[Rfam]
RNA sequence: GGUUUCGAGCUCCAGCGACAAGUCCCGGCUUGCUGGACAGCAACCCUCCUACUGCGGCGGGGUGCUCCGGGAUACGACCGGGUCUCGUGCCGACCGGCCGAGGCAAGCGCAGCUG
Numbered sequence: 001g002g003u004u005u006c007g008a009g010c011u012c013c014a015g016c017g018a019c020a021a022g023u024c025c026c027g028g029c030u031u032g033c034u035g036g037a038c039a040g041c042a043a044c045c046c047u048c049c050u051a052c053u054g055c056g057g058c059g060g061g062g063u064g065c066u067c068c069g070g071g072a073u074a075c076g077a078c079c080g081g082g083u084c085u086c087g088u089g090c091c092g093a094c095c096g097g098c099c100g101a102g103g104c105a106a107g108c109g110c111a112g113c114u115g
Stems, first nucleotide, its partner, number of pairs: 001079004009038001011037006021030002039066003044062003048057002082104006089098003